[Rfam]
RNA sequence: GGGUUUUUCCCUUUACAACGGAUCGUCCGGCACGUUCCUGCCGGUGAAGGAAGGCAAUG
Dot-bracket structure: .........((((((...........((((((......)))))))))))).........

msiK RNA: a 59-nucleotide RNA sequence from Janibacter sp. HTCC2649. The base pairs follow the family's consensus structure, which is taken from published work. The source organism's lineage runs through Bacteria, Bacillati, Actinomycetota, Actinomycetes and Janibacter.